RNA sequence: GGGAUCGCGAGGUCUCGUGGGAAGGAAGCCUCAGUCAAAGCUGAUGAGCCGACGAACAGAAAGAUCAUAUCAGGCUGACGGAGCGGACAAGCUGGCACCACACAGCCAAGUCCGGUGUUCAACUCCGGAGGUAAAUGAUCCGGCUGCGCAGCAAGAGUUCACGUC
Numbered sequence: 001g002g003g004a005u006c007g008c009g010a011g012g013u014c015u016c017g018u019g020g021g022a023a024g025g026a027a028g029c030c031u032c033a034g035u036c037a038a039a040g041c042u043g044a045u046g047a048g049c050c051g052a053c054g055a056a057c058a059g060a061a062a063g064a065u066c067a068u069a070u071c072a073g074g075c076u077g078a079c080g081g082a083g084c085g086g087a088c089a090a091g092c093u094g095g096c097a098c099c100a101c102a103c104a105g106c107c108a109a110g111u112c113c114g115g116u117g118u119u120c121a122a123c124u125c126c127g128g129a130g131g132u133a134a135a136u137g138a139u140c141c142g143g144c145u146g147c148g149c150a151g152c153a154a155g156a157g158u159u160c161a162c163g164u165c
Stems, first nucleotide, its partner, number of pairs: 001016006028165001030163001036157001040152004046147001047145005063140006074132003079127005085113004091106004

Group II catalytic intron D1-D4-3: a 165-nucleotide sequence. Pairs were carried over by alignment from the consensus structure. Rfam's curators put it in the seed alignment. Gene Ontology term of the family: Group II intron splicing.